Rfam assigns this 94-nucleotide RNA sequence from Amniculicola lignicola to the family "A. fumigatus snoRNA Afu_263".
RNA sequence: UUUCGUGAUGAUACCCAUAAAUAAGCAUAGUUCAACCGACGGUCUCCGGACUACUGAGGAACAAGAUACCAUCAUCUUUCGCCCCUAUCUGAUU
Number, nucleotide and partner (000 for none) at each position: 001u000002u000003u000004c000005g000006u020007g000008a018009u017010g016011a000012u000013a000014c000015c000016c010017a009018u008019a000020a006021a000022u000023a000024a000025g000026c000027a000028u000029a000030g000031u058032u057033c056034a055035a000036c000037c000038g000039a000040c000041g052042g051043u050044c049045u000046c000047c000048g000049g044050a043051c042052u041053a000054c000055u034056g033057a032058g031059g000060a000061a000062c000063a000064a000065g000066a000067u000068a000069c000070c000071a000072u000073c000074a000075u000076c000077u000078u000079u000080c000081g000082c000083c000084c000085c000086u000087a000088u000089c000090u000091g000092a000093u000094u000
On this family, see Jochl et al., Nucleic Acids Res 2008: "Small ncRNA transcriptome analysis from Aspergillus fumigatus suggests a novel mechanism for regulation of protein synthesis". Lineage of the source: Eukaryota > dothideomyceta > Dothideomycetes > Pleosporales > Amniculicola lignicola.